[Rfam]
RNA: Small nucleolar RNA SNORD11B
RNA sequence: AGCAAGCAGUGAAGACAAUGACAUUCUGUCACUGUCCUGAAAAUCAUUGAUGGUUUUAAGUCACUACCUCAUCUGAGCUUGCA
Numbered sequence: 001a002g003c004a005a006g007c008a009g010u011g012a013a014g015a016c017a018a019u020g021a022c023a024u025u026c027u028g029u030c031a032c033u034g035u036c037c038u039g040a041a042a043a044u045c046a047u048u049g050a051u052g053g054u055u056u057u058a059a060g061u062c063a064c065u066a067c068c069u070c071a072u073c074u075g076a077g078c079u080u081g082c083a
Stems, first nucleotide, its partner, number of pairs: 002082006